[Rfam]
RNA sequence: GAAAUUCUUCGGGGCAGGGUGAAAUUCCCGACCGACGGUAAUGAGCUAGCUGCUUAAAGUCCGUGACCCGCGUAUGCGGUGGAUCUAGUGAGAAUCUAGAACCGACAGUAAAGUCUGGAUGGGAGAAGAAUUAA
Numbered sequence: 001g002a003a004a005u006u007c008u009u010c011g012g013g014g015c016a017g018g019g020u021g022a023a024a025u026u027c028c029c030g031a032c033c034g035a036c037g038g039u040a041a042u043g044a045g046c047u048a049g050c051u052g053c054u055u056a057a058a059g060u061c062c063g064u065g066a067c068c069c070g071c072g073u074a075u076g077c078g079g080u081g082g083a084u085c086u087a088g089u090g091a092g093a094a095u096c097u098a099g100a101a102c103c104g105a106c107a108g109u110a111a112a113g114u115c116u117g118g119a120u121g122g123g124a125g126a127a128g129a130a131u132u133a134a
Stems, first nucleotide, its partner, number of pairs: 003132008017029003031114002033104002035064004059102002068079002084100005106117003